RNA sequence: UGUCGUAGCUGAAUUAGAGAUCGGCUAGCGAUGUAUCAUUAACAAAACUCAUUUAAGAGGAUUUUAUUAUGUCUCUAAGCACAGAAAAAAAAGCGGCAAUCGUUGCUGAAUUUGGUCGUGAUGCA
Numbered sequence: 001u002g003u004c005g006u007a008g009c010u011g012a013a014u015u016a017g018a019g020a021u022c023g024g025c026u027a028g029c030g031a032u033g034u035a036u037c038a039u040u041a042a043c044a045a046a047a048c049u050c051a052u053u054u055a056a057g058a059g060g061a062u063u064u065u066a067u068u069a070u071g072u073c074u075c076u077a078a079g080c081a082c083a084g085a086a087a088a089a090a091a092a093g094c095g096g097c098a099a100u101c102g103u104u105g106c107u108g109a110a111u112u113u114g115g116u117c118g119u120g121a122u123g124c125a
Base pairs, nucleotide, nucleotide: 007026008025009024010023011022012021052079053078054077058074059073
Rfam assigns this 125-nucleotide RNA from Caviibacterium pharyngocola to the family "Ribosomal S15 leader". About the family: The E. coli Ribosomal S15 gene 5' UTR can form two alternative structures. Pairs were carried over by alignment from the consensus structure, which is taken from published work. The match comes from Rfam's covariance-model search (98 bits). It is annotated as a cis-regulatory leader.